[Rfam]
RNA sequence: UGCAAUGAAGGAUAAACCCGUCCGAAAGACGGGGGCACAAAGCAACCGGCCUACCGCAGUGUUCACUGUACGGCAGCGAGGCUGCCGGG
Numbered sequence: 001u002g003c004a005a006u007g008a009a010g011g012a013u014a015a016a017c018c019c020g021u022c023c024g025a026a027a028g029a030c031g032g033g034g035g036c037a038c039a040a041a042g043c044a045a046c047c048g049g050c051c052u053a054c055c056g057c058a059g060u061g062u063u064c065a066c067u068g069u070a071c072g073g074c075a076g077c078g079a080g081g082c083u084g085c086c087g088g089g
Base pairs, nucleotide, nucleotide: 013037017033018032019031020030021029022028041083042082043081047078048077049074050073051072057068058067059066060065
Notes:
c-di-GMP-I riboswitch aptamer: an 89-nucleotide RNA from Methylobacillus sp. MM3. A reference for the family is Weinberg et al. (2007), "Identification of 22 candidate structured RNAs in bacteria using the CMfinder comparative genomics pipeline", Nucleic Acids Res.